SAH (S-adenosyl-L-homocysteine) riboswitch aptamer: an 85-nucleotide RNA from Luteibacter anthropi.

RNA sequence: CCCGCCGAGGGGCGCUGCGACCGGAGGGGUUUUCCCCCAAUGGCCAGGCUCGGCGCGGCUUGCCGCACAACGGCGCCCCCGUGAC
Numbered sequence: 001c002c003c004g005c006c007g008a009g010g011g012g013c014g015c016u017g018c019g020a021c022c023g024g025a026g027g028g029g030u031u032u033u034c035c036c037c038c039a040a041u042g043g044c045c046a047g048g049c050u051c052g053g054c055g056c057g058g059c060u061u062g063c064c065g066c067a068c069a070a071c072g073g074c075g076c077c078c079c080c081g082u083g084a085c
Stems, first nucleotide, its partner, number of pairs: 003055006021043003026038004
Overview:
Rfam 15.1 lists 1,354 matches to the family in 1,132 species. The organism belongs to Luteibacter, within Bacteria. It scores 47 bits against the family's covariance model.